[Rfam]
RNA: Purine riboswitch aptamer
Organism: Staphylococcus haemolyticus
RNA sequence: CGUUAAAUAAUUUAUAUCACUCAUAUAAUCUAAAGAAUAUGGCUUUAGAAGUUUCUACCAUGUUGCCACAAACGACAUGACUAUGAGUUCAGACUCAAUACAU
Numbered sequence: 001c002g003u004u005a006a007a008u009a010a011u012u013u014a015u016a017u018c019a020c021u022c023a024u025a026u027a028a029u030c031u032a033a034a035g036a037a038u039a040u041g042g043c044u045u046u047a048g049a050a051g052u053u054u055c056u057a058c059c060a061u062g063u064u065g066c067c068a069c070a071a072a073c074g075a076c077a078u079g080a081c082u083a084u085g086a087g088u089u090c091a092g093a094c095u096c097a098a099u100a101c102a103u
Base pairs, nucleotide, nucleotide: 019088020087021086022085023084024083025082029049030048031047032046033045034044035043059079060078061077062076063075064074065073